mir-544 microRNA precursor family: a 96-nucleotide RNA from Otolemur garnettii. It scores 68 bits against the family's covariance model. The family's consensus secondary structure was predicted with RNAalifold.
[Rfam]
Nucleotides: 096
Base pairs, nucleotide, nucleotide: 003089004088009083011082015079016078017077018076019075020074021072022071023070025068026067027066028065029064031062032061033060
Number, partner (000 for none) and nucleotide at each position: 001000a002000u003089c004088a005000c006000c007000u008000g009083g010000g011082g012000a013000u014000c015079u016078u017077g018076u019075u020074a021072a022071a023070a024000u025068g026067c027066a028065g029064a030000u031062u032061c033060u034000g035000a036000u037000u038000c039000a040000a041000u042000a043000g044000g045000u046000u047000u048000g049000g050000u051000g052000c053000g054000a055000g056000c057000c058000u059000g060033a061032g062031a063000u064029u065028c066027u067026g068025c069000a070023u071022u072021u073000u074020u075019a076018a077017u078016g079015a080000a081000c082011u083009c084000c085000a086000g087000u088004u089003g090000a091000u092000g093000c094000c095000a096000a